[Rfam]
RNA sequence: AUGUACGGUUAACACCCAUGUGUGCUUUUUUUUUGUAGCUCCCAUGGAUUUUACUCUGUAAUAUAGUAAAGUGUUGUCUGUAACCUCUGCAUUGGAGGAGUUGCAUUCUCCUCCACAUGUAUUCAGUAGACCAGUACAUCU
Numbered sequence: 001a002u003g004u005a006c007g008g009u010u011a012a013c014a015c016c017c018a019u020g021u022g023u024g025c026u027u028u029u030u031u032u033u034u035g036u037a038g039c040u041c042c043c044a045u046g047g048a049u050u051u052u053a054c055u056c057u058g059u060a061a062u063a064u065a066g067u068a069a070a071g072u073g074u075u076g077u078c079u080g081u082a083a084c085c086u087c088u089g090c091a092u093u094g095g096a097g098g099a100g101u102u103g104c105a106u107u108c109u110c111c112u113c114c115a116c117a118u119g120u121a122u123u124c125a126g127u128a129g130a131c132c133a134g135u136a137c138a139u140c141u
Base pairs, nucleotide, nucleotide: 004060005059006058007057008056014051016047017046018045019044020043022041024039025038026037063079065077068074087126088125089124090119091118092117094114095113096112097111098110099109100108